[Rfam]
HNH endonuclease-associated RNA and ORF (HEARO) RNA: a 205-nucleotide RNA sequence from Pseudothermotoga lettingae.
The family's RNA type in Rfam is non-coding RNA gene.
It is one of the family's seed sequences.
The source organism's lineage runs through Bacteria, Thermotogati, Thermotogaceae, Pseudothermotoga and Pseudothermotoga lettingae.
The literature on the family includes a 2009 paper in Nature by Weinberg et al., "Exceptional structured noncoding RNAs revealed by bacterial metagenome analysis".

RNA sequence: GUCAACUACCCGCCGCCUAUAGAGGCGGGGGCUUGAAAAAGCCCUGAUUGACUACCCUCAGCCACAUAAGUGGCUACGUUAGACAGUUACACCUUGGGAUGCUGCUCAAGUUCCAGGCUCUGUCGUGCAGGUCUAAACAGUCCUGAGGGGUAGGGACAGUGGCAGACAUAACAAGCCUGUCUAACAUUGAGGAUGAGCACCUUAC
Numbered sequence: 001g002u003c004a005a006c007u008a009c010c011c012g013c014c015g016c017c018u019a020u021a022g023a024g025g026c027g028g029g030g031g032c033u034u035g036a037a038a039a040a041g042c043c044c045u046g047a048u049u050g051a052c053u054a055c056c057c058u059c060a061g062c063c064a065c066a067u068a069a070g071u072g073g074c075u076a077c078g079u080u081a082g083a084c085a086g087u088u089a090c091a092c093c094u095u096g097g098g099a100u101g102c103u104g105c106u107c108a109a110g111u112u113c114c115a116g117g118c119u120c121u122g123u124c125g126u127g128c129a130g131g132u133c134u135a136a137a138c139a140g141u142c143c144u145g146a147g148g149g150g151u152a153g154g155g156a157c158a159g160u161g162g163c164a165g166a167c168a169u170a171a172c173a174a175g176c177c178u179g180u181c182u183a184a185c186a187u188u189g190a191g192g193a194u195g196a197g198c199a200c201c202u203u204a205c
Stems, first nucleotide, its partner, number of pairs: 001052005007046002010031002013028002016025002032041003055191001057189001060075005078185005084179003089123002093117008101201001103199006125167002131163003137160002140157005146151001